A member of the RNA family "terC RNA" from Agrobacterium sp. AGB01, 59 nucleotides long.
Lineage of the source: Bacteria > Pseudomonadota > Alphaproteobacteria > Rhizobiaceae > Agrobacterium.
Pairs were carried over by alignment from the consensus structure, which is taken from published work.
The family's RNA type in Rfam is cis-regulatory element.
The match comes from Rfam's covariance-model search (49 bits).
[Rfam]
RNA sequence: AUCAGGACUCGGGCCCCUCUGGCGUAUUACCGGACAAUACGUGAUGUCGAGUCUCUUUA
Numbered sequence: 001a002u003c004a005g006g007a008c009u010c011g012g013g014c015c016c017c018u019c020u021g022g023c024g025u026a027u028u029a030c031c032g033g034a035c036a037a038u039a040c041g042u043g044a045u046g047u048c049g050a051g052u053c054u055c056u057u058u059a
Stems, first nucleotide, its partner, number of pairs: 006053007022042007
Dot-bracket structure: .....(((((((.........(((((((.......)))))))....)))))))......